The record is a 200-nucleotide RNA from Myotis myotis, which matches "Connexin-43 internal ribosome entry site (IRES)" in Rfam. The source organism's lineage runs through Eukaryota, Craniata, Laurasiatheria, Yangochiroptera and Myotis. On this family, see Schiavi et al., FEBS Lett 1999: "Connexin43 mRNA contains a functional internal ribosome entry site". Pairs were carried over by alignment from the consensus structure, which is taken from published work. Rfam describes the family as follows. This family represents the connexin-43 internal ribosome entry site (IRES) which allows cap independent translation during conditions such as heat shock and stress. It scores 90 bits against the family's covariance model.
RNA sequence: AGCUUUUGCGAGGUGCCAGCUCUUUCCUCUCAUGAGGGCGAAGGAGCGAGGAAAGGACCGAACAGCCGCAGACUUAAACUGUGGACACAGGCACGUCCUCGGCCCGAGCUCGCCUUUCAUUUUGCUCCACCUUCUACGGAGUCCAGUCAGCUGGCCGCCUACUUCACUUCUGUUAAGAGAAAGAAGGACGCGCAGGCCAC
Numbered sequence: 001a002g003c004u005u006u007u008g009c010g011a012g013g014u015g016c017c018a019g020c021u022c023u024u025u026c027c028u029c030u031c032a033u034g035a036g037g038g039c040g041a042a043g044g045a046g047c048g049a050g051g052a053a054a055g056g057a058c059c060g061a062a063c064a065g066c067c068g069c070a071g072a073c074u075u076a077a078a079c080u081g082u083g084g085a086c087a088c089a090g091g092c093a094c095g096u097c098c099u100c101g102g103c104c105c106g107a108g109c110u111c112g113c114c115u116u117u118c119a120u121u122u123u124g125c126u127c128c129a130c131c132u133u134c135u136a137c138g139g140a141g142u143c144c145a146g147u148c149a150g151c152u153g154g155c156c157g158c159c160u161a162c163u164u165c166a167c168u169u170c171u172g173u174u175a176a177g178a179g180a181a182a183g184a185a186g187g188a189c190g191c192g193c194a195g196g197c198c199a200c
Stems, first nucleotide, its partner, number of pairs: 002020003007015003029141003035135004040128001042126002048121002051118001053117003071097003075093001100112002102109001151196002154193002157191002159187001162183003165179001167177003